[Rfam]
RNA sequence: CUAGUACUUUCACAGAUCCUCCCUUAGUGGGGCUAGGAUUUGGUAACUGGUGCUGAGAGAAAACCCUUGAUUAUGUCCUUGCCCUGAUACUGUACCAAUGGCAUCUGUCUCUCAAGGGAACAGAG
Numbered sequence: 001c002u003a004g005u006a007c008u009u010u011c012a013c014a015g016a017u018c019c020u021c022c023c024u025u026a027g028u029g030g031g032g033c034u035a036g037g038a039u040u041u042g043g044u045a046a047c048u049g050g051u052g053c054u055g056a057g058a059g060a061a062a063a064c065c066c067u068u069g070a071u072u073a074u075g076u077c078c079u080u081g082c083c084c085u086g087a088u089a090c091u092g093u094a095c096c097a098a099u100g101g102c103a104u105c106u107g108u109c110u111c112u113c114a115a116g117g118g119a120a121c122a123g124a125g
Base pairs, nucleotide, nucleotide: 003054004053005052006051007050008049013042014041015040017038018037019036020035022032023031024030025029065118066117067115068114069113070112075108076107080103081102082101083100085097086096

This 125-nucleotide RNA from Nannospalax galili belongs to the Rfam family "Small nucleolar RNA SNORA30/SNORA37 family". The family's consensus secondary structure was predicted with RNAfold. The organism belongs to Nannospalax, within Eukaryota. A search with the family's covariance model found it, with a score of 99 bits. Rfam classes the family as an H/ACA-box small nucleolar RNA. Its family is annotated with nucleolus and RNA processing in the Gene Ontology. The members of this family belong to the H/ACA class of snoRNAs that guide the sites of modification of uridines to pseudouridines. This family includes human ACA30 (SNORA30), ACA37 (SNORA37) and the mouse homolog MBI-26. Both ACA37 and ACA30 are predicted to guide the pseudouridylation of residue U4643 of 28S rRNA.